[Rfam]
RNA sequence: UCAAAUGAUGACUUCCUUUGGAAUCUCGUUCGUCUGACUUCAUGCUGAGAAAUGGAAUUGCUGAUUGUU
Numbered sequence: 001u002c003a004a005a006u007g008a009u010g011a012c013u014u015c016c017u018u019u020g021g022a023a024u025c026u027c028g029u030u031c032g033u034c035u036g037a038c039u040u041c042a043u044g045c046u047g048a049g050a051a052a053u054g055g056a057a058u059u060g061c062u063g064a065u066u067g068u069u
Base pairs, nucleotide, nucleotide: 024050025049026048027047028046031044032043033042